[Rfam]
RNA: MIR2912 microRNA precursor family
RNA sequence: UUUGGAACUCGAGAUAUGGGCUAAAUACUAAAUAGUAUCUGGGCUGCAAGACAGAUUCAGACUUCUCCGUUGUUGUUAUAAUUUGGACUUGAAAAUGGCCUUUUUAAAUCUUAGACUCCACAUGAAAGUUCUAGGCCUAUAUCUUAUCUUUCCAUC
Dot-bracket structure: ..(((((.(.(((((((((((((.(.(((.....((....(((.(..((((..((....(.((........(((...........)))........)))....))...))))..).)))..))...)))).))).)))))))))))...)))))..